Background:
The family of this 134-nucleotide RNA from Nannospalax galili is "Small nucleolar RNA SNORA29". The match comes from Rfam's covariance-model search (87 bits). The literature on the family includes a 2001 paper in EMBO J by Huttenhofer et al., "RNomics: an experimental approach that identifies 201 candidates for novel, small, non-messenger RNAs in mouse". Its family is annotated with nucleolus and RNA processing in the Gene Ontology. Lineage of the source: Eukaryota > Dipnotetrapodomorpha > Muroidea > Spalacinae > Nannospalax. ACA29 is a member of the H/ACA class of snoRNA that guide the sites of modification of uridines to pseudouridines. The family's RNA type in Rfam is H/ACA-box small nucleolar RNA.
RNA sequence: CGUCCCAUUUGACUACUAUUCUCUUCUAACAGACUGAGGUGGCUGUGCUUGUGGGACAGAUGAAAGAGCCACGACCUGAAAGGGGUGGUCUACUUAGUCCCUUCCCUCUAUAGGAACUGGCUGGACAGAAAAGG
Numbered sequence: 001c002g003u004c005c006c007a008u009u010u011g012a013c014u015a016c017u018a019u020u021c022u023c024u025u026c027u028a029a030c031a032g033a034c035u036g037a038g039g040u041g042g043c044u045g046u047g048c049u050u051g052u053g054g055g056a057c058a059g060a061u062g063a064a065a066g067a068g069c070c071a072c073g074a075c076c077u078g079a080a081a082g083g084g085g086u087g088g089u090c091u092a093c094u095u096a097g098u099c100c101c102u103u104c105c106c107u108c109u110a111u112a113g114g115a116a117c118u119g120g121c122u123g124g125a126c127a128g129a130a131a132a133g134g
Stems, first nucleotide, its partner, number of pairs: 004055004016042004068121004087108002